[Rfam]
RNA: Small nucleolar RNA Z159/U59
RNA sequence: UUCUCCGAUGAUGAUGAAACUAAAUACUUUCGUUCUUCUGAUGCGCUAUCUCAUGGCGCGGUGCGGAAGCAAUUUGGAGACCUGAACUGAGGAGAC
Number, nucleotide and partner (000 for none) at each position: 001u000002u000003c094004u093005c092006c091007g000008a000009u000010g000011a000012u000013g000014a000015u000016g000017a000018a000019a000020c000021u000022a000023a000024a000025u000026a000027c000028u000029u000030u000031c000032g000033u000034u000035c000036u000037u000038c000039u000040g000041a000042u000043g000044c000045g000046c000047u000048a000049u000050c000051u000052c000053a000054u000055g000056g000057c000058g000059c000060g000061g000062u000063g000064c000065g000066g000067a000068a000069g000070c000071a000072a000073u000074u000075u000076g000077g000078a000079g000080a000081c000082c000083u000084g000085a000086a000087c000088u000089g000090a000091g006092g005093a004094g003095a000096c000